The family of this 155-nucleotide sequence from Paenibacillus lentus is "Ribosomal protein L10 leader". About the family: This family is a putative r-protein leader autoregulatory structure found in B. subtilis and other low-GC Gram-positive bacteria.

RNA sequence: UAAAUUUGAAUAUGCUUACCGUAGACAGUAGGUGCCCCGCAAGGCUUAAUUUCCUACCGAGGUGUUAUGAUAGAACGUCAGCAUGCUGCAGGAUGACCUGCGGAUGAUGAUUCAUCAGGCCUUCGUGAUUCUACGGAGGCUUUUUUAAUGAACUA
Numbered sequence: 001u002a003a004a005u006u007u008g009a010a011u012a013u014g015c016u017u018a019c020c021g022u023a024g025a026c027a028g029u030a031g032g033u034g035c036c037c038c039g040c041a042a043g044g045c046u047u048a049a050u051u052u053c054c055u056a057c058c059g060a061g062g063u064g065u066u067a068u069g070a071u072a073g074a075a076c077g078u079c080a081g082c083a084u085g086c087u088g089c090a091g092g093a094u095g096a097c098c099u100g101c102g103g104a105u106g107a108u109g110a111u112u113c114a115u116c117a118g119g120c121c122u123u124c125g126u127g128a129u130u131c132u133a134c135g136g137a138g139g140c141u142u143u144u145u146u147a148a149u150g151a152a153c154u155a
Stems, first nucleotide, its partner, number of pairs: 028057005034045003119140009